RNA sequence: CCAGGAGACGAAAAAGUAGAGUCUGAUGAAGCAAGACUGUUGAUAAAUUCCUCCUAGAAAUACAGGGUUGGAGAGAGCAGCCCUUAUUAGAGAACACUGUGGAGCUGACUGUAGUACCCUAUAUCC
Numbered sequence: 001c002c003a004g005g006a007g008a009c010g011a012a013a014a015a016g017u018a019g020a021g022u023c024u025g026a027u028g029a030a031g032c033a034a035g036a037c038u039g040u041u042g043a044u045a046a047a048u049u050c051c052u053c054c055u056a057g058a059a060a061u062a063c064a065g066g067g068u069u070g071g072a073g074a075g076a077g078c079a080g081c082c083c084u085u086a087u088u089a090g091a092g093a094a095c096a097c098u099g100u101g102g103a104g105c106u107g108a109c110u111g112u113a114g115u116a117c118c119c120u121a122u123a124u125c126c
Base pairs, nucleotide, nucleotide: 001057004053005052007050008049016041020038021037022036023035024034065119066118067117068116076110077109078107079106080105081104083102084101088099089098090097
RNA: Small Cajal body specific RNA 4
Organism: Jaculus jaculus